[Rfam]
RNA: Saccharopolyspora sRNA 350
Organism: Nocardiopsis dassonvillei
RNA sequence: UUGACGGUGUACUCCCACGCCGGUUCGGUGCCGAGCAGGUGCUGGUCGCCGAACCUGUCGCCGUCGGCCAGCACGCCCAGCCGGACGGCCUCGCCGUAGGGGCCGGUGCCGGUCUUGUGCACGCGCCCGUGCGCCAGCAGGAACAGGCUGUCGGCCGCCGUGCCCUCCUCCACCAGGACCUGGCCGUUCUCGAAGUCGCGCUGGACGAAGCGGUUGGCCAGGGCCGCCAGCACCUCCUCGUCGUCGAAGCCGCGCAGCAGGGCCAGCUCGCCGAGUUCGUGGGGGAUGACCCGGACCCGGGCGCCGGUCUGCUCGAACUCGAUCCGCCCGUCGCCGACGGUGUAGGUCAGCCGCCGGUUGACCCGGUAGGCGCCGCCGUCGGUGUGCACCCACGGGAGCAUCCGGGUCAGCCAGCGGGAGCUGAUGCCCUGCAUCUGCGGCGUGGACUUGGUGGUGGUCGCCAGGUUCCGCGCGGCCGCGGUACCCAGGCUCUGCUGCUUGCUGCUCCGG
Numbered sequence: 001u002u003g004a005c006g007g008u009g010u011a012c013u014c015c016c017a018c019g020c021c022g023g024u025u026c027g028g029u030g031c032c033g034a035g036c037a038g039g040u041g042c043u044g045g046u047c048g049c050c051g052a053a054c055c056u057g058u059c060g061c062c063g064u065c066g067g068c069c070a071g072c073a074c075g076c077c078c079a080g081c082c083g084g085a086c087g088g089c090c091u092c093g094c095c096g097u098a099g100g101g102g103c104c105g106g107u108g109c110c111g112g113u114c115u116u117g118u119g120c121a122c123g124c125g126c127c128c129g130u131g132c133g134c135c136a137g138c139a140g141g142a143a144c145a146g147g148c149u150g151u152c153g154g155c156c157g158c159c160g161u162g163c164c165c166u167c168c169u170c171c172a173c174c175a176g177g178a179c180c181u182g183g184c185c186g187u188u189c190u191c192g193a194a195g196u197c198g199c200g201c202u203g204g205a206c207g208a209a210g211c212g213g214u215u216g217g218c219c220a221g222g223g224c225c226g227c228c229a230g231c232a233c234c235u236c237c238u239c240g241u242c243g244u245c246g247a248a249g250c251c252g253c254g255c256a257g258c259a260g261g262g263c264c265a266g267c268u269c270g271c272c273g274a275g276u277u278c279g280u281g282g283g284g285g286a287u288g289a290c291c292c293g294g295a296c297c298c299g300g301g302c303g304c305c306g307g308u309c310u311g312c313u314c315g316a317a318c319u320c321g322a323u324c325c326g327c328c329c330g331u332c333g334c335c336g337a338c339g340g341u342g343u344a345g346g347u348c349a350g351c352c353g354c355c356g357g358u359u360g361a362c363c364c365g366g367u368a369g370g371c372g373c374c375g376c377c378g379u380c381g382g383u384g385u386g387c388a389c390c391c392a393c394g395g396g397a398g399c400a401u402c403c404g405g406g407u408c409a410g411c412c413a414g415c416g417g418g419a420g421c422u423g424a425u426g427c428c429c430u431g432c433a434u435c436u437g438c439g440g441c442g443u444g445g446a447c448u449u450g451g452u453g454g455u456g457g458u459c460g461c462c463a464g465g466u467u468c469c470g471c472g473c474g475g476c477c478g479c480g481g482u483a484c485c486c487a488g489g490c491u492c493u494g495c496u497g498c499u500u501g502c503u504g505c506u507c508c509g510g
Stems, first nucleotide, its partner, number of pairs: 006390007014382002019327001022324001025322003032315008045305001047303004058229001060227002063224002065111004075103001077102002085097005118221001122217001126213002130209001134204004141197001143196002149192002153189002156186002159183001161177001235295003240290006250282005256277003260271001262269001329342004352378002355375003362370002391431002394428002397425001399423002402417002405415001437476002440473001442471005447465006477509002480503003486497003